RNA sequence: AAAUACAACGGCGAUGGAACUCGUCUAAUGCUCAAUGAGCUAAUAGCUCCUACUGAAAG
Number, nucleotide and partner (000 for none) at each position: 001a000002a000003a000004u000005a000006c000007a000008a000009c000010g025011g024012c023013g022014a000015u000016g050017g049018a048019a000020c046021u045022c013023g012024u011025c010026u000027a000028a000029u000030g040031c039032u038033c000034a000035a000036u000037g000038a032039g031040c030041u000042a000043a000044u000045a021046g020047c000048u018049c017050c016051u000052a000053c000054u000055g000056a000057a000058a000059g000